About this RNA:
A member of the RNA family "Listeria sRNA rli62" from Listeria monocytogenes, 131 nucleotides long. Pairs were carried over by alignment from the consensus structure, which was predicted with RNAalifold. A reference for the family is Toledo-Arana et al. (2009), "The Listeria transcriptional landscape from saprophytism to virulence", Nature. It is one of the family's seed sequences. It is annotated as a cis-regulatory element.
RNA sequence: UGUCUUCCCAUAUUUAAUAUUCUUUUCGUAGGGUCAUUUAAUCGUGUUCGCACGACGUAUAGUAGCAGGGUGCUAUAUGCCCCAGGAAGUGGGUUUAUAACUUACCGUUGGUCCCGAUGGGAGACGCAUCC
Numbered sequence: 001u002g003u004c005u006u007c008c009c010a011u012a013u014u015u016a017a018u019a020u021u022c023u024u025u026u027c028g029u030a031g032g033g034u035c036a037u038u039u040a041a042u043c044g045u046g047u048u049c050g051c052a053c054g055a056c057g058u059a060u061a062g063u064a065g066c067a068g069g070g071u072g073c074u075a076u077a078u079g080c081c082c083c084a085g086g087a088a089g090u091g092g093g094u095u096u097a098u099a100a101c102u103u104a105c106c107g108u109u110g111g112u113c114c115c116g117a118u119g120g121g122a123g124a125c126g127c128a129u130c131c
Stems, first nucleotide, its partner, number of pairs: 024089004029084001031082003042055005057078008091115003098110004116130004120125001